[Rfam]
RNA: mir-8/mir-141/mir-200 microRNA precursor family
Organism: Calyptomena viridis
RNA sequence: AUUGCUGUCUUACCAGGCACAGUUAGAUCUGGUCAGUCGUGUCUAAUACUGUCUGGUAAUGCCGUCAAU
Numbered sequence: 001a002u003u004g005c006u007g008u009c010u011u012a013c014c015a016g017g018c019a020c021a022g023u024u025a026g027a028u029c030u031g032g033u034c035a036g037u038c039g040u041g042u043c044u045a046a047u048a049c050u051g052u053c054u055g056g057u058a059a060u061g062c063c064g065u066c067a068a069u
Stems, first nucleotide, its partner, number of pairs: 002068003006064002009061001010059010022047006